[Rfam]
RNA: Microsporidia small subunit ribosomal RNA, nucleotides 485 to 832
RNA sequence: CAGUUAAAGAGUUCGUAGUCGGGCUGCAUGACCGGCGCUGAAGGCUCCCUAUCGAGGGGGGCAGGGCGCCGGAAAAGCAGAGGAUGAGGAGCGGCCGGGGGCCAGGUUAUUAAGCGACGAGAGGUGAAAUUUGAUGACUCGCUUAGGAGCAGCAGAGGCGAAAGCGCUGGCCAGGGGCGAAUCCGAUGAUAAAGGACGUAGGCUAGAGGAUCGAAGACGAUUAGAGACCGUUGUAGUUCUAGCAGUAAACGAUGCCGAUGCCGUGGGGCGGUGCAGCCGCCACGCGGAGGAGAAAUUGAGUAGGGCCCUGGGGAGAGUACACGCGCAAGCGAGAAAUUUAAAGGAAAU
Numbered sequence: 001c002a003g004u005u006a007a008a009g010a011g012u013u014c015g016u017a018g019u020c021g022g023g024c025u026g027c028a029u030g031a032c033c034g035g036c037g038c039u040g041a042a043g044g045c046u047c048c049c050u051a052u053c054g055a056g057g058g059g060g061g062c063a064g065g066g067c068g069c070c071g072g073a074a075a076a077g078c079a080g081a082g083g084a085u086g087a088g089g090a091g092c093g094g095c096c097g098g099g100g101g102c103c104a105g106g107u108u109a110u111u112a113a114g115c116g117a118c119g120a121g122a123g124g125u126g127a128a129a130u131u132u133g134a135u136g137a138c139u140c141g142c143u144u145a146g147g148a149g150c151a152g153c154a155g156a157g158g159c160g161a162a163a164g165c166g167c168u169g170g171c172c173a174g175g176g177g178c179g180a181a182u183c184c185g186a187u188g189a190u191a192a193a194g195g196a197c198g199u200a201g202g203c204u205a206g207a208g209g210a211u212c213g214a215a216g217a218c219g220a221u222u223a224g225a226g227a228c229c230g231u232u233g234u235a236g237u238u239c240u241a242g243c244a245g246u247a248a249a250c251g252a253u254g255c256c257g258a259u260g261c262c263g264u265g266g267g268g269c270g271g272u273g274c275a276g277c278c279g280c281c282a283c284g285c286g287g288a289g290g291a292g293a294a295a296u297u298g299a300g301u302a303g304g305g306c307c308c309u310g311g312g313g314a315g316a317g318u319a320c321a322c323g324c325g326c327a328a329g330c331g332a333g334a335a336a337u338u339u340a341a342a343g344g345a346a347a348u
Base pairs, nucleotide, nucleotide: 001310002309003308011197012196013195014194018190019189020188088184089183090182092179093178095176096175100172101171102170103169104168105167106150107149110146111145112144113143114142115141116140117139121132122131123130158165159164202243203242204241205240206239207238212236216232217231218230219229254306255305256304258301259300261287262286263285264284265283267281268280269279270278290297291296312339313338314337322331323330324329